[Rfam]
This 84-nucleotide RNA sequence from Salicibibacter halophilus belongs to the Rfam family "Group II catalytic intron D1-D4-1". The base pairs follow the family's consensus structure. Taxonomically the source falls in Salicibibacter (Bacteria, Bacillati, Bacillota, Bacillaceae).
RNA sequence: UAACCACAUGCAUGAGCACGUGCUGAGCCGUCAGAAGUCAGCCGAGGUCGUAGUACUUCUCCGUUCCAAACGAGAAGGAAGGAC
Number, nucleotide and partner (000 for none) at each position: 001u025002a024003a000004c000005c022006a021007c020008a000009u018010g017011c016012a000013u000014g000015a000016g011017c010018a009019c000020g007021u006022g005023c000024u002025g001026a000027g000028c000029c000030g000031u000032c000033a000034g000035a000036a000037g000038u045039c044040a000041g000042c000043c000044g039045a038046g000047g084048u083049c082050g000051u000052a000053g000054u000055a000056c077057u076058u075059c074060u073061c072062c000063g000064u000065u000066c000067c000068a000069a000070a000071c000072g061073a060074g059075a058076a057077g056078g000079a000080a000081g000082g049083a048084c047